[Rfam]
RNA sequence: AUACUUACCUUAAGAUGUCAGGGGAGAUCAACAAGUCCAUCUGACCGGGUGUACAUCUUCAAUCUGGGGAAUGCUAUGCAUUUAUCUGUUCGGCUCAGUCGAACGAAGUAAUGAUGUAAGUUUCCUCGUCAAUGCACAUACGAGCGAAGAGUAUACUUGCUGACGUUUCAUUUCCUCGUUCUCAAUAUCAUUUCAGCAAUGCUGUAUGGUAUUGAGGCCCUUUUUUCUUCUGCCUGGAGAAGCAUGGCACUGAGUACAAUCAGUGCUGGGGAAGUCGGGGUUCUUUAGGAGAAUCUUAACAAACGUUCUUUCUUUGGAAGAGUUUUUCACAUUUCUUUUCAACUUCAUUGAUUCCGCUGAAGUUAAUUCAAUGAGAAGGUUUAACGAUUUUUGAGGAGUGAGUGUGAUAAAUGACAUUGAAUGUACCUUCUGCGGAGGGUGAAUGCUUGUUUUGAUAUUACUUUACUGUUCCUCGGAACGAUAGAGUAAAAAUUCUGAAGAGUUUCGAUAGAAAUGGGUGGGUCUUAUAAUUUUUGAUUUAUCUU
Numbered sequence: 001a002u003a004c005u006u007a008c009c010u011u012a013a014g015a016u017g018u019c020a021g022g023g024g025a026g027a028u029c030a031a032c033a034a035g036u037c038c039a040u041c042u043g044a045c046c047g048g049g050u051g052u053a054c055a056u057c058u059u060c061a062a063u064c065u066g067g068g069g070a071a072u073g074c075u076a077u078g079c080a081u082u083u084a085u086c087u088g089u090u091c092g093g094c095u096c097a098g099u100c101g102a103a104c105g106a107a108g109u110a111a112u113g114a115u116g117u118a119a120g121u122u123u124c125c126u127c128g129u130c131a132a133u134g135c136a137c138a139u140a141c142g143a144g145c146g147a148a149g150a151g152u153a154u155a156c157u158u159g160c161u162g163a164c165g166u167u168u169c170a171u172u173u174c175c176u177c178g179u180u181c182u183c184a185a186u187a188u189c190a191u192u193u194c195a196g197c198a199a200u201g202c203u204g205u206a207u208g209g210u211a212u213u214g215a216g217g218c219c220c221u222u223u224u225u226u227c228u229u230c231u232g233c234c235u236g237g238a239g240a241a242g243c244a245u246g247g248c249a250c251u252g253a254g255u256a257c258a259a260u261c262a263g264u265g266c267u268g269g270g271g272a273a274g275u276c277g278g279g280g281u282u283c284u285u286u287a288g289g290a291g292a293a294u295c296u297u298a299a300c301a302a303a304c305g306u307u308c309u310u311u312c313u314u315u316g317g318a319a320g321a322g323u324u325u326u327u328c329a330c331a332u333u334u335c336u337u338u339u340c341a342a343c344u345u346c347a348u349u350g351a352u353u354c355c356g357c358u359g360a361a362g363u364u365a366a367u368u369c370a371a372u373g374a375g376a377a378g379g380u381u382u383a384a385c386g387a388u389u390u391u392u393g394a395g396g397a398g399u400g401a402g403u404g405u406g407a408u409a410a411a412u413g414a415c416a417u418u419g420a421a422u423g424u425a426c427c428u429u430c431u432g433c434g435g436a437g438g439g440u441g442a443a444u445g446c447u448u449g450u451u452u453u454g455a456u457a458u459u460a461c462u463u464u465a466c467u468g469u470u471c472c473u474c475g476g477a478a479c480g481a482u483a484g485a486g487u488a489a490a491a492a493u494u495c496u497g498a499a500g501a502g503u504u505u506c507g508a509u510a511g512a513a514a515u516g517g518g519u520g521g522g523u524c525u526u527a528u529a530a531u532u533u534u535u536g537a538u539u540u541a542u543c544u545u
Stems, first nucleotide, its partner, number of pairs: 010530003013525003017045005023038003046159009056150005072142002164516006172273006178218002181216005189208002227242005247266007
A member of the RNA family "Yeast U1 spliceosomal RNA" from Zygotorulaspora mrakii, 545 nucleotides long. Pairs were carried over by alignment from the consensus structure, which is taken from published work. Rfam's curators write: U1 is a small nuclear RNA (snRNA) component of the spliceosome (involved in pre-mRNA splicing). Its 5' end forms complementary base pairs with the 5' splice junction, thus defining the 5' donor site of an intron. There are significant differences in sequence and secondary structure between metazoan and yeast U1 snRNAs, the latter being much longer (568 nucleotides as compared to 164 nucleotides in human). Nevertheless, secondary structure predictions suggest that all U1 snRNAs share a 'common core' consisting of helices I, II, the proximal region of III, and IV. This family represents the larger yeast sequences. The family is grouped with related families in Rfam's "U1 clan".